[Rfam]
Nucleotides: 085
Stems, first nucleotide, its partner, number of pairs: 001085004
Number, partner (000 for none) and nucleotide at each position: 001085u002084a003083g004082u005000u006000g007000u008000g009000a010000u011000g012000a013000a014000g015000u016000g017000a018000a019000g020000g021000a022000u023000a024000u025000g026000g027000u028000u029000u030000c031000g032000c033000a034000a035000c036000u037000a038000c039000a040000g041000u042000a043000u044000u045000g046000a047000u048000u049000a050000u051000u052000u053000a054000u055000u056000g057000a058000u059000g060000a061000a062000a063000a064000c065000u066000a067000u068000c069000c070000u071000u072000g073000g074000c075000u076000g077000u078000c079000u080000g081000a082004a083003c084002u085001a
A member of the RNA family "Small nucleolar RNA SNORD53/SNORD92" from Mytilus edulis, 85 nucleotides long.
Gene Ontology terms of the family: RNA processing and nucleolus.
Clan: SNORD52 clan.
On this family, see Huttenhofer et al., EMBO J 2001: "RNomics: an experimental approach that identifies 201 candidates for novel, small, non-messenger RNAs in mouse".
A search with the family's covariance model found it, with a score of 50 bits.